A member of the RNA family "Small nucleolar RNA SNORA65", 129 nucleotides long. The literature on the family includes a 2001 paper in EMBO J by Huttenhofer et al., "RNomics: an experimental approach that identifies 201 candidates for novel, small, non-messenger RNAs in mouse". Rfam's curators write: U65 belongs to the H/ACA class of snoRNAs which are thought to guide the sites of modification of uridines to pseudouridines. The family's consensus secondary structure was predicted with RNAalifold. It is one of the family's seed sequences.
[Rfam]
RNA sequence: CCCGCCACUGUACCUGUCUUGUAAUGCAGUGACUUGUAUAGUCCAGAGGUGGGCUGAGAGAAAAUGCCAUCCUAGGAAACAGGGUUAUUCUUCUUGUGGGUAACUCUGUGCCGAAGGCUGGGAACAGCA
Numbered sequence: 001c002c003c004g005c006c007a008c009u010g011u012a013c014c015u016g017u018c019u020u021g022u023a024a025u026g027c028a029g030u031g032a033c034u035u036g037u038a039u040a041g042u043c044c045a046g047a048g049g050u051g052g053g054c055u056g057a058g059a060g061a062a063a064a065u066g067c068c069a070u071c072c073u074a075g076g077a078a079a080c081a082g083g084g085u086u087a088u089u090c091u092u093c094u095u096g097u098g099g100g101u102a103a104c105u106c107u108g109u110g111c112c113g114a115a116g117g118c119u120g121g122g123a124a125c126a127g128c129a
Stems, first nucleotide, its partner, number of pairs: 005049002008046003018036001021033001022031002065122001067120001069119001071117003075112002080108006088100003